[Rfam]
RNA sequence: UCGUCUUACAAAGGCAUUUCUUUGGUUCUCUGUCUUUGGACAUGUAAGCAUUGGAGGAAAAGAAAUUUUGUGGAUUUGGAGAAGUCUGAGGCCAGCUUGUUCACUGUAGGCUCAGGAUCAAUCAUCCCACAUAG
Numbered sequence: 001u002c003g004u005c006u007u008a009c010a011a012a013g014g015c016a017u018u019u020c021u022u023u024g025g026u027u028c029u030c031u032g033u034c035u036u037u038g039g040a041c042a043u044g045u046a047a048g049c050a051u052u053g054g055a056g057g058a059a060a061a062g063a064a065a066u067u068u069u070g071u072g073g074a075u076u077u078g079g080a081g082a083a084g085u086c087u088g089a090g091g092c093c094a095g096c097u098u099g100u101u102c103a104c105u106g107u108a109g110g111c112u113c114a115g116g117a118u119c120a121a122u123c124a125u126c127c128c129a130c131a132u133a134g
Stems, first nucleotide, its partner, number of pairs: 002057001004055003015044003019040003024030002072127003076124001094112007
The family of this 134-nucleotide RNA sequence from Marmota monax is "Small nucleolar RNA SNORA38". The match comes from Rfam's covariance-model search (120 bits). ACA38 is a member of the H/ACA class of snoRNA that guide the sites of modification of uridines to pseudouridines. Gene Ontology terms of the family: RNA processing, nucleolus and Cajal body. Taxonomically the source falls in Marmota (Eukaryota, Eumetazoa, Eutheria, Marmotini). The family has 25 seed sequences and 628 matches in Rfam 15.1. Rfam classes the family as an H/ACA-box small nucleolar RNA. The family's consensus secondary structure was predicted with RNAfold.